[Rfam]
RNA sequence: GUGAAAUGAUGAUUCAGUUUAUCCAUUCGCUGAGUGCGCUGCACCAACCUUCUUCCAAACCUCAGUUCCUGUUCUAGGAGCGCGGGGCUGCGUGGCCUCCAGGCUCCCUGCAGCCUGCAGUGUUCUGCUGCCGGCUGCUGGGGGGUCUGGGCUACUGGGAGAAUGGCUGGUGGUGGCAGGGGUGAGGCCCCCUCGGGGCCCAUCUCACCGAGAUGAGUGGUAAGAUCUGAUCAC
Numbered sequence: 001g002u003g004a005a006a007u008g009a010u011g012a013u014u015c016a017g018u019u020u021a022u023c024c025a026u027u028c029g030c031u032g033a034g035u036g037c038g039c040u041g042c043a044c045c046a047a048c049c050u051u052c053u054u055c056c057a058a059a060c061c062u063c064a065g066u067u068c069c070u071g072u073u074c075u076a077g078g079a080g081c082g083c084g085g086g087g088c089u090g091c092g093u094g095g096c097c098u099c100c101a102g103g104c105u106c107c108c109u110g111c112a113g114c115c116u117g118c119a120g121u122g123u124u125c126u127g128c129u130g131c132c133g134g135c136u137g138c139u140g141g142g143g144g145g146u147c148u149g150g151g152c153u154a155c156u157g158g159g160a161g162a163a164u165g166g167c168u169g170g171u172g173g174u175g176g177c178a179g180g181g182g183u184g185a186g187g188c189c190c191c192c193u194c195g196g197g198g199c200c201c202a203u204c205u206c207a208c209c210g211a212g213a214u215g216a217g218u219g220g221u222a223a224g225a226u227c228u229g230a231u232c233a234c
Stems, first nucleotide, its partner, number of pairs: 010233005017226004023220007030212002034208002038177004042172005048166002050163007058089001060087004065081006092155007105144002107141001110138006117131006179206006186199001188197002

Source information:
The record is a 234-nucleotide RNA sequence from Ochotona princeps, which matches "Small nucleolar RNA SNORD17" in Rfam. Taxonomically the source falls in Ochotona (Eukaryota, Opisthokonta, Eumetazoa, Chordata). The literature on the family includes a 2001 paper in EMBO J by Huttenhofer et al., "RNomics: an experimental approach that identifies 201 candidates for novel, small, non-messenger RNAs in mouse". Rfam links the family to the GO terms RNA processing and nucleolus. The snoRNA HBI-43 belongs to the C/D family of snoRNAs, guiding 2'O-ribose methylation at position U3797 of the 28S rRNA. Pseudouridylation in position U3797 is predicted to be guided by the H/ACA snoRNA ACA48. The sequence is in the family's curated seed alignment.